[Rfam]
RNA sequence: GCUUCCCCAGCUCUGCAUGGUUACACUUGUCUUCACUCAUGUGACUUUUGUAAUGUGGGGAGAGAGAAAAGAUUUCCUCAAGAUGUCAGGUUGGCCAUACAGUGGCCUCUCUUUCCUUGAGGGGUCCAACAGGG
Number, nucleotide and partner (000 for none) at each position: 001g000002c066003u065004u000005c000006c064007c000008c062009a000010g000011c060012u059013c058014u057015g056016c000017a000018u000019g046020g045021u044022u043023a042024c041025a040026c000027u000028u000029g000030u000031c000032u000033u000034c000035a000036c000037u000038c000039a000040u025041g024042u023043g022044a021045c020046u019047u000048u000049u000050g000051u000052a000053a000054u000055g000056u015057g014058g013059g012060g011061a000062g008063a000064g006065a003066g002067a000068a000069a000070a000071g000072a000073u000074u124075u123076c122077c121078u120079c000080a118081a117082g116083a000084u000085g000086u000087c000088a112089g111090g110091u000092u000093g107094g106095c105096c104097a000098u000099a000100c000101a000102g000103u000104g096105g095106c094107c093108u000109c000110u090111c089112u088113u000114u000115c000116c082117u081118u080119g000120a078121g077122g076123g075124g074125u000126c000127c000128a000129a000130c000131a000132g000133g000134g000
RNA: Small nucleolar RNA SNORA64/SNORA10 family